A member of the RNA family "Small nucleolar RNA Z107/R87", 94 nucleotides long. The match comes from Rfam's covariance-model search (76 bits). Gene Ontology terms of the family: RNA processing and nucleolus.
[Rfam]
RNA sequence: AAUCGCAGUGACGACUCAAAAAAUUCAAGCUCAACAGACCGGAUUGCAGGUUUUGAUUACUUGCGUGUCGAUAAACCCGCUGAACUGAGCGUUU
Numbered sequence: 001a002a003u004c005g006c007a008g009u010g011a012c013g014a015c016u017c018a019a020a021a022a023a024u025u026c027a028a029g030c031u032c033a034a035c036a037g038a039c040c041g042g043a044u045u046g047c048a049g050g051u052u053u054u055g056a057u058u059a060c061u062u063g064c065g066u067g068u069c070g071a072u073a074a075a076c077c078c079g080c081u082g083a084a085c086u087g088a089g090c091g092u093u094u
Base pairs, nucleotide, nucleotide: 001094002093004091005090006089